[Rfam]
RNA sequence: AAAACCGACAAAGCGCCAUGAGCCUCCCUCGCGGAGGACGACGAGGCGGGAGGUGAUCGAAUUUUCGGCGGAUGCCUCCCCGUGCGGUUCCGGCGCGCACACAGCCGACAAAUACGCGGGCGACCGCGGAACAGAGGGACUGUGACGGAACGGA
Numbered sequence: 001a002a003a004a005c006c007g008a009c010a011a012a013g014c015g016c017c018a019u020g021a022g023c024c025u026c027c028c029u030c031g032c033g034g035a036g037g038a039c040g041a042c043g044a045g046g047c048g049g050g051a052g053g054u055g056a057u058c059g060a061a062u063u064u065u066c067g068g069c070g071g072a073u074g075c076c077u078c079c080c081c082g083u084g085c086g087g088u089u090c091c092g093g094c095g096c097g098c099a100c101a102c103a104g105c106c107g108a109c110a111a112a113u114a115c116g117c118g119g120g121c122g123a124c125c126g127c128g129g130a131a132c133a134g135a136g137g138g139a140c141u142g143u144g145a146c147g148g149a150a151c152g153g154a
Stems, first nucleotide, its partner, number of pairs: 020039001023037005048080005057068004081097005100144005106138001115128005